[Rfam]
Nucleotides: 100
Stems, first nucleotide, its partner, number of pairs: 005088002007084004012079001015076008025065002028063006035056002
Number, partner (000 for none) and nucleotide at each position: 001000a002000a003000g004000a005088a006087g007084c008083c009082c010081a011000a012079a013000a014000c015076a016075a017074c018073u019072a020071u021070u022069g023000g024000u025065c026064a027000c028063u029062g030061c031060a032059c033058a034000g035056g036055a037000c038000u039000a040000g041000u042000a043000a044000g045000c046000g047000u048000g049000a050000u051000a052000u053000a054000c055036u056035c057000u058033u059032g060031u061030g062029c063028g064026u065025g066000u067000u068000c069022c070021a071020a072019u073018a074017g075016u076015u077000a078000u079012u080000g081010u082009g083008g084007g085000u086000g087006c088005u089000u090000c091000a092000u093000u094000a095000u096000c097000a098000a099000c100000a
A member of the RNA family "mir-210 microRNA precursor family" from Galleria mellonella, 100 nucleotides long. On this family, see Cai et al., Proc Natl Acad Sci U S A 2005: "Kaposi's sarcoma-associated herpesvirus expresses an array of viral microRNAs in latently infected cells". Pairs were carried over by alignment from the consensus structure, which was predicted with WAR.